[Rfam]
Shown here is an 87-nucleotide RNA, a member of the family "freshwater-2 RNA". By type it is a cis-regulatory element.

RNA sequence: UGUGCCGCAAGGCGGACUUAUGCUGUUUAACCCACAGCGUACUGGAUAGAACCCAGAUGGGACUACUUAAAUAGGAGAAAACAAAUG
Number, nucleotide and partner (000 for none) at each position: 001u016002g000003u014004g013005c012006c011007g000008c000009a000010a000011g006012g005013c004014g003015g000016a001017c000018u000019u041020a040021u039022g038023c037024u036025g035026u000027u000028u000029a000030a000031c000032c000033c000034a000035c025036a024037g023038c022039g021040u020041a019042c056043u055044g054045g053046a000047u000048a000049g000050a000051a000052c000053c045054c044055a043056g042057a000058u000059g000060g000061g000062a000063c000064u000065a000066c000067u000068u000069a000070a000071a000072u000073a000074g000075g000076a000077g000078a000079a000080a000081a000082c000083a000084a000085a000086u000087g000